[Rfam]
Pseudomonas sRNA P9: an 84-nucleotide sequence from Cupriavidus metallidurans. Rfam's curators write: This small RNA (sRNA) was computationally identified in the genome of the opportunistic pathogen Pseudomonas aeruginosa and its expression verified by northern blot analysis. P9 appears to be conserved in several Pseudomonas species in addition to Bordetella spp. In both Pseudomonas and Bordetella spp P9 appears to be located upstream of a predicted threonine dehydratase gene. P9 has a predicted Rho independent terminator at the 3' end but the function of P9 is unknown. The family's consensus secondary structure was predicted with RNAalifold. The organism belongs to Cupriavidus metallidurans, within Bacteria. By type it is a non-coding RNA gene. The literature on the family includes a 2006 paper in Nucleic Acids Res by Livny et al., "Identification of 17 Pseudomonas aeruginosa sRNAs and prediction of sRNA-encoding genes in 10 diverse pathogens using the bioinformatic tool sRNAPredict2".
RNA sequence: GCGAUUAUUCGCACCAUUCCGAGAAUGGUGGGUUAGCGCGCGUCCGAAACAGACAUCAAUAACCCGCCCAACGAGGCGGGUUUU
Dot-bracket structure: ...........((((((.......))))))..............................((((((((......))))))))..